[Rfam]
Shown here is a 69-nucleotide RNA from Lynx pardinus, a member of the family "Selenocysteine insertion sequence 1".
RNA sequence: UUUGCAUUAAUGAAGACUACACAGAAAACCUUCAUGAGGAUUUGUGUGGAUCUGAUGAUAUUUAGCAAA
Numbered sequence: 001u002u003u004g005c006a007u008u009a010a011u012g013a014a015g016a017c018u019a020c021a022c023a024g025a026a027a028a029c030c031u032u033c034a035u036g037a038g039g040a041u042u043u044g045u046g047u048g049g050a051u052c053u054g055a056u057g058a059u060a061u062u063u064a065g066c067a068a069a
Stems, first nucleotide, its partner, number of pairs: 001069005015052002017049008030039003
It is annotated as a cis-regulatory element.